[Rfam]
Nucleotides: 104
Stems, first nucleotide, its partner, number of pairs: 003029001005027003008022001010020001032067004039060002082101007
Number, partner (000 for none) and nucleotide at each position: 001000u002000g003029u004000c005027u006026a007025a008022a009000c010020c011000c012000a013000a014000g015000u016000u017000u018000g019000a020010g021000a022008u023000a024000a025007u026006u027005g028000a029003a030000u031000g032067u033066u034065u035064c036000g037000c038000a039060c040059c041000c042000a043000g044000a045000g046000u047000u048000u049000c050000g051000g052000c053000u054000g055000c056000u057000g058000u059040g060039g061000c062000u063000u064035g065034a066033a067032g068000u069000a070000a071000a072000a073000u074000u075000u076000u077000g078000g079000a080000a081000c082101g083100u084099c085098c086097u087096a088095c089000u090000a091000u092000u093000u094000a095088g096087u097086g098085g099084g100083a101082c102000a103000a104000c
Record summary: A member of the RNA family "SL1 RNA" from Acanthocheilonema viteae, 104 nucleotides long. The match comes from Rfam's covariance-model search (82 bits). The family is grouped with related families in Rfam's "SL clan". For this family Rfam cites "Trans-spliced leader RNA, 5S-rRNA genes and novel variant orphan spliced-leader of the lymphatic filarial nematode Wuchereria bancrofti, and a sensitive polymerase chain reaction based detection assay" (Dassanayake et al., Gene, 2001). From the family's description: This family represents the SL1 RNA. SL1 is commonly located in the spacer region between 5S-rRNA genes where it is involved in trans-splicing. Trans-splicing is a form of RNA processing. The acquisition of a spliced leader from a SL RNA is a intra-molecular reaction which precisely joins exons derived from separately transcribed RNAs. This mechanism of mRNA maturation has been shown to occur in a number of lower eukaryotes and is commonplace in nematodes. Rfam 15.1 lists 1,095 matches to the family in 28 species. The family's RNA type in Rfam is non-coding RNA gene.